[Rfam]
RNA sequence: ACUAGAGGAUUAAGAAGGCCUGGUCCGUUGAGCCAGGGCUAGGCCGAAACCGUCCUCUUACAGAAAUGCGAUGGAGAGAGGGGUCCAGCUUCCAGAGAGCGGCGACCUUACUGUGCCAUUCAACAGUA
Numbered sequence: 001a002c003u004a005g006a007g008g009a010u011u012a013a014g015a016a017g018g019c020c021u022g023g024u025c026c027g028u029u030g031a032g033c034c035a036g037g038g039c040u041a042g043g044c045c046g047a048a049a050c051c052g053u054c055c056u057c058u059u060a061c062a063g064a065a066a067u068g069c070g071a072u073g074g075a076g077a078g079a080g081g082g083g084u085c086c087a088g089c090u091u092c093c094a095g096a097g098a099g100c101g102g103c104g105a106c107c108u109u110a111c112u113g114u115g116c117c118a119u120u121c122a123a124c125a126g127u128a
Base pairs, nucleotide, nucleotide: 003060004058005057006056007055008054009053017045018044019043021041022040023039024038025037026036068121070119079112080111081109082108083107086104091102092101
Small Cajal body specific RNA 4: a 128-nucleotide sequence from Pantherophis guttatus. Gene Ontology terms of the family: RNA processing, Cajal body and nucleolus. The family is grouped with related families in Rfam's "SCARNA4 clan". Rfam 15.1 lists 634 matches to the family in 510 species. NCBI's taxonomy places the organism under Eukaryota, Bilateria, Bifurcata, Episquamata, Pantherophis. scaRNAs are a specific class of small nuclear RNAs which localise to the Cajal bodies and guide the modification of RNA polymerase II transcribed spliceosomal RNAs U1, U2, U4, U5 and U12. ACA26 belongs to the H/ACA box class of guide RNAs as it has the predicted hairpin-hinge-hairpin-tail structure, conserved H/ACA-box motifs and is found associated with GAR1. It scores 74 bits against the family's covariance model.